[Rfam]
RNA sequence: UCAGAUGGCUGGAUGGCCGCGGCCCGCACGGGAAACCAGCGGGUUCGAGGAAAGUCCGGGCUCCAUGGGAACACGGUGCCAGGUAACGCCUGGCGGGGGCAACCCUAGGGAAAGUGCCACAGAAAGCAAACCGCUUCGCUGUUGCGGAGUAAGGGUGAAAGGGUGCGGUAAGAGCGCACCGCCGGCCUGGCGACAGGGCGGGCAUGGUAAACCCCACCGGGAGCAAAACCGAAUAGGGAUGGUCGCCGGGUAAGGCCGGCAGGCGGGUUUUCACGCCACCGUCCGGGUAGGUUGCAGGAGGUUGUCGGCGACGGCAGCCCAAGAUGAAUGGCCAUCCAACGCUUAGGCGUGGACAGAACCCGGCUUACAGGCCAUCUGAUCGA
Number, nucleotide and partner (000 for none) at each position: 001u379002c378003a377004g376005a375006u374007g373008g372009c371010u370011g368012g336013a335014u334015g333016g332017c331018c330019g000020c047021g046022g045023c000024c042025c041026g040027c039028a000029c000030g000031g000032g000033a000034a000035a000036c000037c000038a000039g027040c026041g025042g024043g000044u000045u022046c021047g020048a000049g000050g000051a000052a366053a365054g364055u000056c363057c362058g361059g360060g359061c223062u222063c221064c220065a000066u000067g000068g000069g271070a270071a269072c000073a000074c219075g218076g217077u216078g215079c093080c092081a091082g090083g089084u000085a000086a000087c000088g000089c083090c082091u081092g080093g079094c108095g106096g105097g104098g103099g000100c000101a000102a000103c098104c097105c096106u095107a000108g094109g214110g213111a000112a000113a000114g212115u211116g208117c207118c206119a000120c000121a000122g000123a000124a000125a000126g000127c000128a000129a000130a000131c154132c153133g150134c149135u148136u147137c146138g145139c144140u000141g000142u000143u000144g139145c138146g137147g136148a135149g134150u133151a000152a000153g132154g131155g000156u000157g000158a000159a000160a000161g000162g180163g179164u178165g177166c176167g175168g000169u000170a000171a000172g000173a000174g000175c167176g166177c165178a164179c163180c162181g203182c201183c200184g199185g000186c197187c196188u195189g194190g000191c000192g000193a000194c189195a188196g187197g186198g000199c184200g183201g182202g000203c181204a000205u000206g118207g117208u116209a000210a000211a115212c114213c110214c109215c078216a077217c076218c075219g074220g064221g063222a062223g061224c000225a000226a000227a293228a292229c291230c290231g000232a000233a000234u000235a000236g000237g284238g283239a282240u281241g280242g279243u000244c000245g000246c000247c000248g000249g000250g000251u000252a000253a000254g000255g000256c000257c000258g000259g000260c000261a000262g277263g276264c275265g274266g000267g000268u000269u071270u070271u069272c000273a000274c265275g264276c263277c262278a000279c242280c241281g240282u239283c238284c237285g000286g000287g000288u000289a000290g230291g229292u228293u227294g000295c000296a000297g000298g000299a000300g319301g318302u317303u316304g315305u314306c313307g312308g000309c000310g000311a000312c307313g306314g305315c304316a303317g302318c301319c300320c000321a000322a000323g000324a000325u000326g000327a000328a000329u000330g018331g017332c016333c015334a014335u013336c012337c000338a000339a000340c000341g000342c000343u000344u000345a000346g000347g000348c000349g000350u000351g000352g000353a000354c000355a000356g000357a000358a000359c060360c059361c058362g057363g056364c054365u053366u052367a000368c011369a000370g010371g009372c008373c007374a006375u005376c004377u003378g002379a001380u000381c000382g000383a000
Rfam assigns this 383-nucleotide RNA sequence from Aestuariispira insulae to the family "Bacterial RNase P class A".
The family's RNA type in Rfam is ribozyme.
A search with the family's covariance model found it, with a score of 313 bits.
Rfam links the family to the GO terms ribonuclease P activity, dimeric ribonuclease P complex and tRNA processing.